[Rfam]
RNA sequence: UUUGAGGUGAUGACCCUUUCCCCAAAUUAUCGACUAUGAUUAUACUGUGCGAUUUCCGAGUUCUUCUUUUCGGAGAAGAGACUCUAAGCCAGAUGUUCUGAUCGAA
Numbered sequence: 001u002u003u004g005a006g007g008u009g010a011u012g013a014c015c016c017u018u019u020c021c022c023c024a025a026a027u028u029a030u031c032g033a034c035u036a037u038g039a040u041u042a043u044a045c046u047g048u049g050c051g052a053u054u055u056c057c058g059a060g061u062u063c064u065u066c067u068u069u070u071c072g073g074a075g076a077a078g079a080g081a082c083u084c085u086a087a088g089c090c091a092g093a094u095g096u097u098c099u100g101a102u103c104g105a106a
Stems, first nucleotide, its partner, number of pairs: 001106005
Dot-bracket structure: (((((................................................................................................)))))
This 106-nucleotide RNA sequence from Digitaria exilis belongs to the Rfam family "Small nucleolar RNA Z103". Gene Ontology terms of the family: nucleolus and RNA processing. The family's RNA type in Rfam is C/D-box small nucleolar RNA. A search with the family's covariance model found it, with a score of 84 bits.